[Rfam]
RNA sequence: CAGGCGGUGGCGCCGCGCGCUACUCUGGCGCCAGGGCUGUCCUCACGAGUCAGGUACCUGAAGUAGCGCGCGGGGCCUCCGCCU
Numbered sequence: 001c002a003g004g005c006g007g008u009g010g011c012g013c014c015g016c017g018c019g020c021u022a023c024u025c026u027g028g029c030g031c032c033a034g035g036g037c038u039g040u041c042c043u044c045a046c047g048a049g050u051c052a053g054g055u056a057c058c059u060g061a062a063g064u065a066g067c068g069c070g071c072g073g074g075g076c077c078u079c080c081g082c083c084u
Stems, first nucleotide, its partner, number of pairs: 009077003014072001016070007030055003035051004
The record is an 84-nucleotide sequence from Diatraea saccharalis, which matches "mir-275 microRNA precursor family" in Rfam. It scores 68 bits against the family's covariance model. The base pairs follow the family's consensus structure, which was predicted with RNAalifold.